[Rfam]
This 87-nucleotide RNA from Geoalkalibacter subterraneus belongs to the Rfam family "c-di-GMP-I-GGC riboswitch aptamer". The source organism's lineage runs through Bacteria, Pseudomonadati, Desulfuromonadia, Geoalkalibacteraceae and Geoalkalibacter.
RNA sequence: UCCGACAAAGGUAAACCUCGGGUAACCGGGGGACACAAAGCCACGGGUCCUGCUCUGAAGGAAAUGGGGACAGCCGGGUUGCCGAAA
Numbered sequence: 001u002c003c004g005a006c007a008a009a010g011g012u013a014a015a016c017c018u019c020g021g022g023u024a025a026c027c028g029g030g031g032g033a034c035a036c037a038a039a040g041c042c043a044c045g046g047g048u049c050c051u052g053c054u055c056u057g058a059a060g061g062a063a064a065u066g067g068g069g070a071c072a073g074c075c076g077g078g079u080u081g082c083c084g085a086a087a
Stems, first nucleotide, its partner, number of pairs: 001087001003084002011036002016031006034073001039080004044076003047071005
Its family is annotated with cyclic-di-GMP binding in the Gene Ontology.